[Rfam]
RNA sequence: GGUAAUAAGCAGAAGCACCCGCUUCUCACCUGGAUGACACAUGAUAUGUAGUUAACAGGUUUACGAGAUAUCUUUUAAUUAUUUAAUUGAAAUCGUAAAGUGUGGGUGUAAUAUGCAUCCACACUUUUUUAUUUGU
Numbered sequence: 001g002g003u004a005a006u007a008a009g010c011a012g013a014a015g016c017a018c019c020c021g022c023u024u025c026u027c028a029c030c031u032g033g034a035u036g037a038c039a040c041a042u043g044a045u046a047u048g049u050a051g052u053u054a055a056c057a058g059g060u061u062u063a064c065g066a067g068a069u070a071u072c073u074u075u076u077a078a079u080u081a082u083u084u085a086a087u088u089g090a091a092a093u094c095g096u097a098a099a100g101u102g103u104g105g106g107u108g109u110a111a112u113a114u115g116c117a118u119c120c121a122c123a124c125u126u127u128u129u130u131a132u133u134u135g136u
Base pairs, nucleotide, nucleotide: 011026012025013024014023015022016021028060029059030058036053037052038051039049040048101123102122103121104120105119106118107117108116109115110114
Ribosomal protein L20 leader: a 136-nucleotide sequence from Litchfieldia salsa. By type it is a cis-regulatory leader. This family is a putative r-protein leader autoregulatory structure found in B. subtilis and other low-GC Gram-positive bacteria. The organism belongs to Litchfieldia, within Bacteria.